The record is a 96-nucleotide RNA sequence from Roseateles depolymerans, which matches "SAH (S-adenosyl-L-homocysteine) riboswitch aptamer" in Rfam.
It scores 64 bits against the family's covariance model.
Rfam 15.1 lists 1,354 matches to the family in 1,132 species.
The organism belongs to Roseateles, within Bacteria.

RNA sequence: CGUUCCGAGGAGCGUUGCGACCUCUCACCGCCAGAGGCCAGGCUCGGAACUGCUGUGUUGUAUCCCCUCACAGCCCAGCAACCGCGCUCACCCGUU
Numbered sequence: 001c002g003u004u005c006c007g008a009g010g011a012g013c014g015u016u017g018c019g020a021c022c023u024c025u026c027a028c029c030g031c032c033a034g035a036g037g038c039c040a041g042g043c044u045c046g047g048a049a050c051u052g053c054u055g056u057g058u059u060g061u062a063u064c065c066c067c068u069c070a071c072a073g074c075c076c077a078g079c080a081a082c083c084g085c086g087c088u089c090a091c092c093c094g095u096u
Stems, first nucleotide, its partner, number of pairs: 002050007021037005